Rfam assigns this 79-nucleotide RNA sequence from Danio rerio to the family "mir-219 microRNA precursor family".
The sequence is in the family's curated seed alignment.
Rfam 15.1 lists 1,318 matches to the family in 774 species.
[Rfam]
RNA sequence: CCAGAGAUUGAUUGUCCAAACGCAAUUCUUGUAACAUAUAAUAUAAAUCCAAGAAUUGUGCCUGGACAUCUGUUGCUGG
Numbered sequence: 001c002c003a004g005a006g007a008u009u010g011a012u013u014g015u016c017c018a019a020a021c022g023c024a025a026u027u028c029u030u031g032u033a034a035c036a037u038a039u040a041a042u043a044u045a046a047a048u049c050c051a052a053g054a055a056u057u058g059u060g061c062c063u064g065g066a067c068a069u070c071u072g073u074u075g076c077u078g079g
Stems, first nucleotide, its partner, number of pairs: 002078003006074002010070003014067005021060011